[Rfam]
Source information
A member of the RNA family "Small nucleolar RNA snoR111" from Rhynchospora breviuscula, 125 nucleotides long. It is annotated as an H/ACA-box small nucleolar RNA. Its family is annotated with nucleolus and RNA processing in the Gene Ontology. The match comes from Rfam's covariance-model search (57 bits).

RNA sequence: AUAAGCGGGCAAAUCAUUGCUAGUAGGUUUGUCUGAAAAAUUAAGAGGCAGAUCAAUUUGUCAAGAUAUCGUUUCGGUUGCCAUUUAAUUCAUUUAGUUGGCACUCGAUUGUUGCUUGAGAACAG
Numbered sequence: 001a002u003a004a005g006c007g008g009g010c011a012a013a014u015c016a017u018u019g020c021u022a023g024u025a026g027g028u029u030u031g032u033c034u035g036a037a038a039a040a041u042u043a044a045g046a047g048g049c050a051g052a053u054c055a056a057u058u059u060g061u062c063a064a065g066a067u068a069u070c071g072u073u074u075c076g077g078u079u080g081c082c083a084u085u086u087a088a089u090u091c092a093u094u095u096a097g098u099u100g101g102c103a104c105u106c107g108a109u110u111g112u113u114g115c116u117u118g119a120g121a122a123c124a125g
Base pairs, nucleotide, nucleotide: 006035007034008033009032010031011030062118063117064116065115068109069108070107071106077104078103080102081101082100083099085097086096087095088094

Notes: On this family, see Marker et al., Curr Biol 2002: "Experimental RNomics: identification of 140 candidates for small non-messenger RNAs in the plant Arabidopsis thaliana". Lineage of the source: Eukaryota > Viridiplantae > Petrosaviidae > Poales > Rhynchospora.